This 384-nucleotide sequence from Frigoribacterium sp. PhB160 belongs to the Rfam family "Bacterial RNase P class A". It is annotated as a ribozyme.
[Rfam]
RNA sequence: CGGGUCGGCAAGACGGUCGCGUCGGUCGGGGGCUCGCUCCCGGCCGCCGAGGAACGUCCGGGCUCCACAGAGCAGGGCGGUGGGCAACACCCACCCGGGGCGACCCGCGAGACAGUGCAACAGAGAGCAGACCGCCACGGUCGUCGCCGCGAGGCGCGGCCGGGGUAAGGGUGAAACGGCGGUGUAAGAGACCACCAGCGGUUCGGGUGACCGACCGGCUAUGCAAACCUCGCCUGGAGCAAGGUCAGACAGAAGGCGUCGAGGCGGCUCGCUGAGCCUUCGGGUAGACCGCUAGAGGGCUGUGGCGACGCAGUCCCGAGAUAGAUGGCCGUCCAUGGUGCUCCGGCACCGGGACAGAACCCGGCGUAUCAGCCGGCCCGUCCG
Numbered sequence: 001c002g003g004g005u006c007g008g009c010a011a012g013a014c015g016g017u018c019g020c021g022u023c024g025g026u027c028g029g030g031g032g033c034u035c036g037c038u039c040c041c042g043g044c045c046g047c048c049g050a051g052g053a054a055c056g057u058c059c060g061g062g063c064u065c066c067a068c069a070g071a072g073c074a075g076g077g078c079g080g081u082g083g084g085c086a087a088c089a090c091c092c093a094c095c096c097g098g099g100g101c102g103a104c105c106c107g108c109g110a111g112a113c114a115g116u117g118c119a120a121c122a123g124a125g126a127g128c129a130g131a132c133c134g135c136c137a138c139g140g141u142c143g144u145c146g147c148c149g150c151g152a153g154g155c156g157c158g159g160c161c162g163g164g165g166u167a168a169g170g171g172u173g174a175a176a177c178g179g180c181g182g183u184g185u186a187a188g189a190g191a192c193c194a195c196c197a198g199c200g201g202u203u204c205g206g207g208u209g210a211c212c213g214a215c216c217g218g219c220u221a222u223g224c225a226a227a228c229c230u231c232g233c234c235u236g237g238a239g240c241a242a243g244g245u246c247a248g249a250c251a252g253a254a255g256g257c258g259u260c261g262a263g264g265c266g267g268c269u270c271g272c273u274g275a276g277c278c279u280u281c282g283g284g285u286a287g288a289c290c291g292c293u294a295g296a297g298g299g300c301u302g303u304g305g306c307g308a309c310g311c312a313g314u315c316c317c318g319a320g321a322u323a324g325a326u327g328g329c330c331g332u333c334c335a336u337g338g339u340g341c342u343c344c345g346g347c348a349c350c351g352g353g354a355c356a357g358a359a360c361c362c363g364g365c366g367u368a369u370c371a372g373c374c375g376g377c378c379c380g381u382c383c384g
Base pairs, nucleotide, nucleotide: 001380002379003378004377005376006375007374008373009372011369012333013332014331015330016329017328018327020049021048023046024045025044026043027042028041029040030039031038054367055366056365058364059363060362061361062360063239064238065237066236070270071269072268073267075235076234077233078232079231080094081093082092083091084090095109096107097106098105099104110230111229115228116227117224118223119222132170133169134166135165136164138162139161140160141159142158143157144156178196179195181193182192183191198219199217200216201215203214204213205212206211243290244289245288246287252281253280254279255278256277257276263273264272265271297316298315299314300313301312302311303310304309